Notes: A member of the RNA family "sRNA-Xcc1" from Isoalcanivorax pacificus, 87 nucleotides long. The family's RNA type in Rfam is small RNA. The source organism's lineage runs through Bacteria, Pseudomonadota, Gammaproteobacteria, Alcanivoracaceae and Isoalcanivorax pacificus. The family has 74 seed sequences and 421 matches in Rfam 15.1. On this family, see Schmidtke et al., Nucleic Acids Res 2011: "Genome-wide transcriptome analysis of the plant pathogen Xanthomonas identifies sRNAs with putative virulence functions".

RNA sequence: GGCCGGGUAGCGGCAGCCAUAAAAUACCCGCAAGGGGAAAGCUGCCGGCCGUCUGAUAGCGGUGUUCAACUGCCCGGCCGCCCUCUG
Numbered sequence: 001g002g003c004c005g006g007g008u009a010g011c012g013g014c015a016g017c018c019a020u021a022a023a024a025u026a027c028c029c030g031c032a033a034g035g036g037g038a039a040a041g042c043u044g045c046c047g048g049c050c051g052u053c054u055g056a057u058a059g060c061g062g063u064g065u066u067c068a069a070c071u072g073c074c075c076g077g078c079c080g081c082c083c084u085c086u087g
Base pairs, nucleotide, nucleotide: 001079002078003077004076005075006074007073008072009071012046013045014044015043017041027036028035029034048063049062050061051060052059